[Rfam]
RNA sequence: AUGACUCUCAGGUUCUGGCACGGCCCUCGGAAAUGGCCAGAAGCUUUCAGCCGACAUCCCUGCGAUGCCGGCUUUUUUU
Dot-bracket structure: .........((.(((((((....((...)).....))))))).))....((((.((((.....)))).)))).......

A member of the RNA family "Burkholderia sRNA 54" from Paraburkholderia ultramafica, 79 nucleotides long.
The family has 4 seed sequences and 91 matches in Rfam 15.1.
From the family's description: Identified by RNA-seq, RACE and Northern blot. Strongly expressed in biofilm.
Lineage of the source: Bacteria > Pseudomonadati > Betaproteobacteria > Burkholderiaceae > Paraburkholderia.